RNA sequence: AGCCCGAAGAAGAGUGGACGGGUCAAUUUCCACUCUAACUCCCUGUUGGACUUGGCCGGGCCAUUGUGCCCGGUCUUUUUU
Numbered sequence: 001a002g003c004c005c006g007a008a009g010a011a012g013a014g015u016g017g018a019c020g021g022g023u024c025a026a027u028u029u030c031c032a033c034u035c036u037a038a039c040u041c042c043c044u045g046u047u048g049g050a051c052u053u054g055g056c057c058g059g060g061c062c063a064u065u066g067u068g069c070c071c072g073g074u075c076u077u078u079u080u081u
Stems, first nucleotide, its partner, number of pairs: 012035007054075008